[Rfam]
RNA sequence: AAGAGAAGAGAUGACAAAGACUGGGGACAGGCAGAGCAUGAAUGGAACUAUCAAUAGACACAUUUGUUCACUGAGUUACAAAGGGAAACACACACAUAUACAUACAUAGAUAAAGACAUGAUACAUCCAUCAUCUCAUCUAUUGUGGCUACGCUCAUGCACUGCCUCUUCCCUGGCUCUCUCGUUCUUUUUCCUU
Numbered sequence: 001a002a003g004a005g006a007a008g009a010g011a012u013g014a015c016a017a018a019g020a021c022u023g024g025g026g027a028c029a030g031g032c033a034g035a036g037c038a039u040g041a042a043u044g045g046a047a048c049u050a051u052c053a054a055u056a057g058a059c060a061c062a063u064u065u066g067u068u069c070a071c072u073g074a075g076u077u078a079c080a081a082a083g084g085g086a087a088a089c090a091c092a093c094a095c096a097u098a099u100a101c102a103u104a105c106a107u108a109g110a111u112a113a114a115g116a117c118a119u120g121a122u123a124c125a126u127c128c129a130u131c132a133u134c135u136c137a138u139c140u141a142u143u144g145u146g147g148c149u150a151c152g153c154u155c156a157u158g159c160a161c162u163g164c165c166u167c168u169u170c171c172c173u174g175g176c177u178c179u180c181u182c183g184u185u186c187u188u189u190u191u192c193c194u195u
Stems, first nucleotide, its partner, number of pairs: 018177002021174001023172005029166006036159006046149001

This 195-nucleotide sequence from Arachis duranensis belongs to the Rfam family "MIR408 microRNA precursor family". The family's consensus secondary structure was predicted with WAR. Gene Ontology terms of the family: RISC complex and miRNA-mediated post-transcriptional gene silencing.